[Rfam]
RNA sequence: AGGAGGUGGUCGAGGGAAUCUGAGAAGGCACACGAGAUCUGUGUCCAGUGCUCUCCACACCUUGUGCUACUCAGAUCUGCUCAUGCCCUCCC
Number, nucleotide and partner (000 for none) at each position: 001a000002g091003g090004a089005g088006g087007u000008g086009g000010u000011c000012g082013a081014g080015g000016g078017a000018a076019u075020c074021u073022g072023a071024g070025a000026a000027g068028g067029c066030a065031c064032a063033c000034g000035a062036g061037a000038u059039c000040u000041g051042u050043g049044u048045c000046c000047a000048g044049u043050g042051c041052u000053c000054u000055c000056c000057a000058c000059a038060c000061c036062u035063u032064g031065u030066g029067c028068u027069a000070c024071u023072c022073a021074g020075a019076u018077c000078u016079g000080c014081u013082c012083a000084u000085g000086c008087c006088c005089u004090c003091c002092c000
RNA: mir-3200 microRNA precursor family